[Rfam]
RNA sequence: CUUUGUGGUCUUCCACAGCUUUCUUGAACUGCAUCUGGGAGAGACAGUACCCCUCUGGAUUUUACUUGCAUGAAUGUGCAGUUCAAUAAAGCUGUGGGAAAUUACAGAGA
Numbered sequence: 001c002u003u004u005g006u007g008g009u010c011u012u013c014c015a016c017a018g019c020u021u022u023c024u025u026g027a028a029c030u031g032c033a034u035c036u037g038g039g040a041g042a043g044a045c046a047g048u049a050c051c052c053c054u055c056u057g058g059a060u061u062u063u064a065c066u067u068g069c070a071u072g073a074a075u076g077u078g079c080a081g082u083u084c085a086a087u088a089a090a091g092c093u094g095u096g097g098g099a100a101a102u103u104a105c106a107g108a109g110a
Stems, first nucleotide, its partner, number of pairs: 003107005013097003017093006024086004029081005
This 110-nucleotide sequence from Oryza meyeriana belongs to the Rfam family "MIR396 microRNA precursor family". The family has 26 seed sequences and 744 matches in Rfam 15.1. Gene Ontology terms of the family: miRNA-mediated post-transcriptional gene silencing and RISC complex. Taxonomically the source falls in Oryza meyeriana (Eukaryota, Magnoliopsida, Poales, Oryzeae). It scores 88 bits against the family's covariance model.